The record is a 99-nucleotide sequence from Actinopolyspora mzabensis, which matches "TPP riboswitch aptamer (THI element)" in Rfam. The source organism's lineage runs through Bacteria, Actinomycetota, Actinopolysporales, Actinopolysporaceae and Actinopolyspora. Its family is annotated with thiamine pyrophosphate binding in the Gene Ontology.
[Rfam]
RNA sequence: GCCAGUGACGCGGGGUGCCCGGCCGUUCGGUCGGGCUGAGAGAGACCCGUCGAACCUGAACUAGUUCGUACUAGCGGAGGGACGUCGCGGUGUUGCCGG
Numbered sequence: 001g002c003c004a005g006u007g008a009c010g011c012g013g014g015g016u017g018c019c020c021g022g023c024c025g026u027u028c029g030g031u032c033g034g035g036c037u038g039a040g041a042g043a044g045a046c047c048c049g050u051c052g053a054a055c056c057u058g059a060a061c062u063a064g065u066u067c068g069u070a071c072u073a074g075c076g077g078a079g080g081g082a083c084g085u086c087g088c089g090g091u092g093u094u095g096c097c098g099g
Stems, first nucleotide, its partner, number of pairs: 006087005011049004016043001017036007055080003061074004